Rfam assigns this 141-nucleotide sequence from Aurantimonas marianensis to the family "speF leader". The source organism's lineage runs through Bacteria, Pseudomonadati, Alphaproteobacteria, Aurantimonadaceae and Aurantimonas. The literature on the family includes a 2012 paper in RNA Biol by del Val et al., "A survey of sRNA families in alpha-proteobacteria". The base pairs follow the family's consensus structure, which was predicted with RNAalifold. About the family: This family is a putative regulatory RNA structure that is found upstream of the speF gene encoding ornithine decarboxylase in Agrobacterium tumefaciens and other alpha-proteobacteria. A search with the family's covariance model found it, with a score of 59 bits. Rfam classes the family as a cis-regulatory leader.
RNA sequence: CUCCUGGUCUCCAAAGCCGGGAAUACUGAAGAGGCACACCAUCCUUGCCUGAAGUGCGGCGGGUUCAAGCCCUCCAAGCCAUGGCAGACUGAUUACCGGAGACGGACGUUUCGCGUCCGCAUCCGGCCAUCGUCGCGUCUC
Dot-bracket structure: .(((((((.......)))))))..........((((.........))))......(((........................((...........))......................................)))...